[Rfam]
RNA: tRNA
RNA sequence: GGUUCCAUGGUCUAGUGGUCAGGAGAUUGGACUCUGAAUCCAGUAACCCGAGUUCAAAUCUCGGUGGAACCU
Numbered sequence: 001g002g003u004u005c006c007a008u009g010g011u012c013u014a015g016u017g018g019u020c021a022g023g024a025g026a027u028u029g030g031a032c033u034c035u036g037a038a039u040c041c042a043g044u045a046a047c048c049c050g051a052g053u054u055c056a057a058a059u060c061u062c063g064g065u066g067g068a069a070c071c072u
Stems, first nucleotide, its partner, number of pairs: 001071007011024003027043005048064005